[Rfam]
RNA sequence: AGAAACGUUUUCUAGGGUUCCGCAGUGCUAAACUGGUCUGGUCCGAGGGGAAACUCACAGCACCUGCUGUGCCACGGAAGGAUAAAAGCCUGGGAGAA
Numbered sequence: 001a002g003a004a005a006c007g008u009u010u011u012c013u014a015g016g017g018u019u020c021c022g023c024a025g026u027g028c029u030a031a032a033c034u035g036g037u038c039u040g041g042u043c044c045g046a047g048g049g050g051a052a053a054c055u056c057a058c059a060g061c062a063c064c065u066g067c068u069g070u071g072c073c074a075c076g077g078a079a080g081g082a083u084a085a086a087a088g089c090c091u092g093g094g095a096g097a098a
Base pairs, nucleotide, nucleotide: 007054008053009052010051011050012049015044016043020041021040022038023035024034025033026032056071057070058069059068060067061066073093075096079091080090081089

Guanidine-I riboswitch aptamer: a 98-nucleotide sequence from a Paenibacillaceae bacterium. The pairing is the family consensus, mapped onto this sequence. Lineage of the source: Bacteria > Bacillati > Bacillota > Caryophanales > Paenibacillaceae. This family represents a conserved RNA structure found upstream of the ykkC and yxkD genes in Bacillus subtilis and related genes in other bacteria.